A member of the RNA family "Glutamine riboswitch aptamer (glnA leader)", 54 nucleotides long. Its family is annotated with glutamine binding in the Gene Ontology. The sequence is in the family's curated seed alignment. The literature on the family includes a 2015 paper in Cell Rep by Ren et al., "Structural and Dynamic Basis for Low-Affinity, High-Selectivity Binding of L-Glutamine by the Glutamine Riboswitch".
RNA sequence: UACGUUCAUCUUACAAAGUAAGACGGAAGUAAGCGAAUGCUGAAGGAACGCACC
Numbered sequence: 001u002a003c004g005u006u007c008a009u010c011u012u013a014c015a016a017a018g019u020a021a022g023a024c025g026g027a028a029g030u031a032a033g034c035g036a037a038u039g040c041u042g043a044a045g046g047a048a049c050g051c052a053c054c
Base pairs, nucleotide, nucleotide: 003050004049005048006047007046009023010022011021012020013019026051032041033040034039
Dot-bracket structure: ..(((((.(((((.....)))))..[.....(((....)))....)))))]...